[Rfam]
RNA sequence: GCGGUGAAAACCGCGGGAUGUUCCGCUCUACGGAGAACCAUAAA
Numbered sequence: 001g002c003g004g005u006g007a008a009a010a011c012c013g014c015g016g017g018a019u020g021u022u023c024c025g026c027u028c029u030a031c032g033g034a035g036a037a038c039c040a041u042a043a044a
Stems, first nucleotide, its partner, number of pairs: 001014005015039002022034004